[Rfam]
RNA sequence: CGCCGAGUCCUGCCUGCUGGUCACGGUCAACAAACACACAGGCAUGGAGCGGGGGACCCACAGUUCCUCGGUGCACUCGAAUUGAGCGCACCUCGGGGUGAAGCCGCAUUUUCAAGCGGCCGGGCUCCUCGGCCCGAACCCGACAGCUCACCUCGCAGGCGUGGAGGGAAAAA
Numbered sequence: 001c002g003c004c005g006a007g008u009c010c011u012g013c014c015u016g017c018u019g020g021u022c023a024c025g026g027u028c029a030a031c032a033a034a035c036a037c038a039c040a041g042g043c044a045u046g047g048a049g050c051g052g053g054g055g056a057c058c059c060a061c062a063g064u065u066c067c068u069c070g071g072u073g074c075a076c077u078c079g080a081a082u083u084g085a086g087c088g089c090a091c092c093u094c095g096g097g098g099u100g101a102a103g104c105c106g107c108a109u110u111u112u113c114a115a116g117c118g119g120c121c122g123g124g125c126u127c128c129u130c131g132g133c134c135c136g137a138a139c140c141c142g143a144c145a146g147c148u149c150a151c152c153u154c155g156c157a158g159g160c161g162u163g164g165a166g167g168g169a170a171a172a173a
Base pairs, nucleotide, nucleotide: 001161002160003159004158008048009047010046049156050155051154052153053152054151059095096141097140098139104119105118106117107116122135123134124133125132
This 173-nucleotide RNA from Actinoplanes regularis belongs to the Rfam family "c-di-AMP riboswitch aptamer (ydaO/yuaA leader)". The match comes from Rfam's covariance-model search (70 bits).